[Rfam]
Small nucleolar RNA R12: a 77-nucleotide sequence from Gossypium australe. The family's consensus secondary structure was predicted with PFOLD. A reference for the family is Chen et al. (2003), "The high diversity of snoRNAs in plants: identification and comparative study of 120 snoRNA genes from Oryza sativa", Nucleic Acids Res. A search with the family's covariance model found it, with a score of 73 bits.

RNA sequence: AGGAGGAUGAUGAAAACAAUCAGACGGAUUCCCAUUGAUUUUUUCUAUGAGAACAUAACCAGCUACUUCUGACUCUU
Number, nucleotide and partner (000 for none) at each position: 001a077002g076003g075004a074005g073006g000007a000008u000009g000010a000011u000012g000013a000014a000015a000016a000017c000018a000019a000020u000021c000022a000023g000024a000025c000026g000027g000028a000029u000030u000031c000032c000033c000034a000035u000036u000037g000038a000039u000040u000041u000042u000043u000044u000045c000046u000047a000048u000049g000050a000051g000052a000053a000054c000055a000056u000057a000058a000059c000060c000061a000062g000063c000064u000065a000066c000067u000068u000069c000070u000071g000072a000073c005074u004075c003076u002077u001